[Rfam]
RNA sequence: GGGUUAGUGAGAACCUUUUGAAUCAAGUAGUGGAGUGAUUCAAAAGGUUCUC
Numbered sequence: 001g002g003g004u005u006a007g008u009g010a011g012a013a014c015c016u017u018u019u020g021a022a023u024c025a026a027g028u029a030g031u032g033g034a035g036u037g038a039u040u041c042a043a044a045a046g047g048u049u050c051u052c
Stems, first nucleotide, its partner, number of pairs: 009052017
The family of this 52-nucleotide RNA from Acer saccharum is "Plastid-ccsA-ndhD-1 3UTR RNA". A search with the family's covariance model found it, with a score of 55 bits. Rfam 15.1 lists 1,322 matches to the family in 557 species. The family's RNA type in Rfam is cis-regulatory element. Its Rfam clan is "Plastid-ccsA_ndhD 3UTR RNA clan". A reference for the family is Richter et al. (2023), "Retrograde signaling in plants: A critical review focusing on the GUN pathway and beyond", Plant Commun. Plastid-ccsA-ndhD-1 is a non-coding RNA (ncRNA) recognised in plastids. It was found in the three prime untranslated region (3UTR) of ccsA and ndhD genes, its 3UTR location suggests a role in transcript maturation.